[Rfam]
RNA sequence: GCAAAUGCCCCGCGCUCAGGCUUUCGAUACGGCAAUCGAGCUCUUGCCGUCAGCUAACCGGUCCACGAGGGAUUGGGAAUCGUUACGAGCCGUGGCUCCCGCAGGAGACACUGCGCAGGUGAGCGCGGCUCCCACGGCGCGGGGC
Numbered sequence: 001g002c003a004a005a006u007g008c009c010c011c012g013c014g015c016u017c018a019g020g021c022u023u024u025c026g027a028u029a030c031g032g033c034a035a036u037c038g039a040g041c042u043c044u045u046g047c048c049g050u051c052a053g054c055u056a057a058c059c060g061g062u063c064c065a066c067g068a069g070g071g072a073u074u075g076g077g078a079a080u081c082g083u084u085a086c087g088a089g090c091c092g093u094g095g096c097u098c099c100c101g102c103a104g105g106a107g108a109c110a111c112u113g114c115g116c117a118g119g120u121g122a123g124c125g126c127g128g129c130u131c132c133c134a135c136g137g138c139g140c141g142g143g144g145c
Stems, first nucleotide, its partner, number of pairs: 007145010025082004029050007058076007087131007
RNA: DUF3268 RNA